[Rfam]
RNA sequence: AUCGAAGUUUACUAGGGUUCCGCCGGCAGCAAGCCGGGGCUGGUCCGAGAGUAAACCGCCCUGCGGCCAGCCGCGCGGCGACACGGAAGGAUAAAAACCUGGGAGAU
Numbered sequence: 001a002u003c004g005a006a007g008u009u010u011a012c013u014a015g016g017g018u019u020c021c022g023c024c025g026g027c028a029g030c031a032a033g034c035c036g037g038g039g040c041u042g043g044u045c046c047g048a049g050a051g052u053a054a055a056c057c058g059c060c061c062u063g064c065g066g067c068c069a070g071c072c073g074c075g076c077g078g079c080g081a082c083a084c085g086g087a088a089g090g091a092u093a094a095a096a097a098c099c100u101g102g103g104a105g106a107u
Stems, first nucleotide, its partner, number of pairs: 007056006015046002020043002022040001023037005057080004062075003082102001084105001088100003